The family of this 311-nucleotide RNA sequence from Podargus strigoides is "Small Cajal body-specific RNA 7". The match comes from Rfam's covariance-model search (187 bits). Its family is annotated with nucleolus and RNA processing in the Gene Ontology. Rfam 15.1 lists 570 matches to the family in 531 species. The pairing is the family consensus, mapped onto this sequence.

RNA sequence: UGGAAGUGAUGAAAUAGAGAUAAUUGGAUGUAAUUUUGAAUGGAGUGUGUGUGAUAAAUGGAAUUUAAACCAACUGGGGGUGGGGGAUAGGGAAUGUGUGUGUGUGUGAAUGUAUAGAAAAGGCUUUAAAUGGGGGCACUGACAGGCAGUGCUGAUUCCGGAGUGCAUCUGAGGCAUGUUGUGCAGUUCUGGGGUGCCACUUUACAACAUUGCCGAUGAUUAAAGCCCAGAACAAGCCCACCAAGACAAGCCUAGGCAUCCUAAAUCUCUAACAGGUUCAUUGAUGAAAGUGAUCCUGUGAUCUGAUCUAA
Numbered sequence: 001u002g003g004a005a006g007u008g009a010u011g012a013a014a015u016a017g018a019g020a021u022a023a024u025u026g027g028a029u030g031u032a033a034u035u036u037u038g039a040a041u042g043g044a045g046u047g048u049g050u051g052u053g054a055u056a057a058a059u060g061g062a063a064u065u066u067a068a069a070c071c072a073a074c075u076g077g078g079g080g081u082g083g084g085g086g087a088u089a090g091g092g093a094a095u096g097u098g099u100g101u102g103u104g105u106g107u108g109a110a111u112g113u114a115u116a117g118a119a120a121a122g123g124c125u126u127u128a129a130a131u132g133g134g135g136g137c138a139c140u141g142a143c144a145g146g147c148a149g150u151g152c153u154g155a156u157u158c159c160g161g162a163g164u165g166c167a168u169c170u171g172a173g174g175c176a177u178g179u180u181g182u183g184c185a186g187u188u189c190u191g192g193g194g195u196g197c198c199a200c201u202u203u204a205c206a207a208c209a210u211u212g213c214c215g216a217u218g219a220u221u222a223a224a225g226c227c228c229a230g231a232a233c234a235a236g237c238c239c240a241c242c243a244a245g246a247c248a249a250g251c252c253u254a255g256g257c258a259u260c261c262u263a264a265a266u267c268u269c270u271a272a273c274a275g276g277u278u279c280a281u282u283g284a285u286g287a288a289a290g291u292g293a294u295c296c297u298g299u300g301a302u303c304u305g306a307u308c309u310a311a
Stems, first nucleotide, its partner, number of pairs: 001310004177209007186198001188196001189194001